Shown here is a 73-nucleotide RNA sequence from Monodelphis domestica, a member of the family "Small nucleolar RNA SNORD24".
On this family, see Qu et al., Nucleic Acids Res 1995: "U24, a novel intron-encoded small nucleolar RNA with two 12 nt long, phylogenetically conserved complementarities to 28S rRNA".
The family has 14 seed sequences and 2,843 matches in Rfam 15.1.
The family's RNA type in Rfam is C/D-box small nucleolar RNA.
RNA sequence: UGCAGAUGAUGAUUACGAUAUUUGCUAUCUGAGUUGCAAUGAUUACAUAUGUACCACCGAGAUCGCUGAUGCA
Numbered sequence: 001u002g003c004a005g006a007u008g009a010u011g012a013u014u015a016c017g018a019u020a021u022u023u024g025c026u027a028u029c030u031g032a033g034u035u036g037c038a039a040u041g042a043u044u045a046c047a048u049a050u051g052u053a054c055c056a057c058c059g060a061g062a063u064c065g066c067u068g069a070u071g072c073a
Stems, first nucleotide, its partner, number of pairs: 001073004
Dot-bracket structure: ((((.................................................................))))

Taxonomically the source falls in Monodelphis (Eukaryota, Bilateria, Craniata, Dipnotetrapodomorpha). Pairs were carried over by alignment from the consensus structure, which was predicted with PFOLD.